Shown here is a 72-nucleotide RNA from Sporolactobacillus shoreae, a member of the family "tRNA". Rfam's curators write: Transfer RNA (tRNA) molecules are approximately 80 nucleotides in length. The family's consensus secondary structure is taken from published work. Its family is annotated with triplet codon-amino acid adaptor activity in the Gene Ontology. The literature on the family includes a 1993 paper in Trends Biochem Sci by Hou, "The tertiary structure of tRNA and the development of the genetic code". It is annotated as a transfer RNA. Taxonomically the source falls in Sporolactobacillus (Bacteria, Bacillati, Bacilli, Caryophanales).

[Rfam]
RNA sequence: UACCCCAUGGCCAAACGGUAAGGCAGCGGUUUCUGGGGCCGCGAUGUUCUGGUUCGAAUCCAGAUGGGGUAA
Numbered sequence: 001u002a003c004c005c006c007a008u009g010g011c012c013a014a015a016c017g018g019u020a021a022g023g024c025a026g027c028g029g030u031u032u033c034u035g036g037g038g039c040c041g042c043g044a045u046g047u048u049c050u051g052g053u054u055c056g057a058a059u060c061c062a063g064a065u066g067g068g069g070u071a072a
Stems, first nucleotide, its partner, number of pairs: 001071007010024003026042005048064005